[Rfam]
The record is a 68-nucleotide sequence from Flavobacterium sp. KMS, which matches "DUF805 RNA" in Rfam. Rfam 15.1 lists 281 matches to the family in 219 species.

RNA sequence: GAAAAUUGGAGUUCAGAAACCAAAACAAAAACGGGGUGUAAUCGAAAAACCUAAAGAGUAGAAAACAA
Numbered sequence: 001g002a003a004a005a006u007u008g009g010a011g012u013u014c015a016g017a018a019a020c021c022a023a024a025a026c027a028a029a030a031a032c033g034g035g036g037u038g039u040a041a042u043c044g045a046a047a048a049a050c051c052u053a054a055a056g057a058g059u060a061g062a063a064a065a066c067a068a
Stems, first nucleotide, its partner, number of pairs: 006023004035051003042062002

The family is grouped with related families in Rfam's "DUF805 clan". It is annotated as a cis-regulatory element. Taxonomically the source falls in Flavobacterium (Bacteria, Pseudomonadati, Bacteroidota, Flavobacteriia).